A member of the RNA family "Small nucleolar RNA Z152/R70/R12/" from Sorghum bicolor, 96 nucleotides long.
RNA sequence: AAUGCGAUGAUGAUUCAAAUGGUUUUGGCAGUGGUUAUCCAUUUGGACACCGUGAGCCUUCAAACCAAAAAACGACUUCUCUUUCCACUGAGCAUU
Numbered sequence: 001a002a003u004g005c006g007a008u009g010a011u012g013a014u015u016c017a018a019a020u021g022g023u024u025u026u027g028g029c030a031g032u033g034g035u036u037a038u039c040c041a042u043u044u045g046g047a048c049a050c051c052g053u054g055a056g057c058c059u060u061c062a063a064a065c066c067a068a069a070a071a072a073c074g075a076c077u078u079c080u081c082u083u084u085c086c087a088c089u090g091a092g093c094a095u096u
Stems, first nucleotide, its partner, number of pairs: 001096005

Rfam classes the family as a C/D-box small nucleolar RNA. Its family is annotated with RNA processing and nucleolus in the Gene Ontology. NCBI's taxonomy places the organism under Eukaryota, Embryophyta, Mesangiospermae, Poaceae, Sorghum.